[Rfam]
RNA sequence: AUUUCUUUCCCAGAGAGGGAACUCCGGGAAGAUACAAUAAAUUAAGAUUAAGUGGUAGGAAUCAACGAGCUGGAUUACU
Numbered sequence: 001a002u003u004u005c006u007u008u009c010c011c012a013g014a015g016a017g018g019g020a021a022c023u024c025c026g027g028g029a030a031g032a033u034a035c036a037a038u039a040a041a042u043u044a045a046g047a048u049u050a051a052g053u054g055g056u057a058g059g060a061a062u063c064a065a066c067g068a069g070c071u072g073g074a075u076u077a078c079u
Base pairs, nucleotide, nucleotide: 007030008029009028010027011026013024014023015022064075066073
Record summary: The record is a 79-nucleotide sequence from Aegilops tauschii, which matches "Plastid-rpl20 3UTR RNA" in Rfam. About the family: Plastid rpl20 is a non-coding RNA (ncRNA) recognised in plastids. It was found in the three prime untranslated region (3UTR) of rpl20 gene, it presence in the 3UTR region sugest a role in transcript maduration. Rfam classes the family as a cis-regulatory element. Rfam 15.1 lists 587 matches to the family in 315 species.